[Rfam]
RNA: TPP riboswitch aptamer (THI element)
RNA sequence: GCAUUCACCCAGGGGAGUCCCGGCAAGGGGCUGAGAUACUGCUGGCUUUCGCGGCGCAGUGACCCGUUGAACCUGAUCCAGUUCAUACUGGCGUAGGGACGGUGCAAGCGCUUUGC
Number, nucleotide and partner (000 for none) at each position: 001g000002c000003a000004u000005u000006c104007a103008c102009c101010c000011a000012g065013g064014g063015g000016a000017g031018u030019c029020c028021c027022g000023g000024c000025a000026a000027g021028g020029g019030g018031c017032u000033g000034a000035g000036a000037u000038a060039c059040u058041g057042c056043u000044g000045g000046c000047u000048u000049u000050c000051g000052c000053g000054g000055c000056g042057c041058a040059g039060u038061g000062a000063c014064c013065c012066g000067u000068u000069g000070a000071a000072c097073c096074u095075g094076a000077u000078c091079c090080a089081g088082u000083u000084c000085a000086u000087a000088c081089u080090g079091g078092c000093g000094u075095a074096g073097g072098g000099a000100c000101g009102g008103u007104g006105c000106a000107a000108g000109c000110g000111c000112u000113u000114u000115g000116c000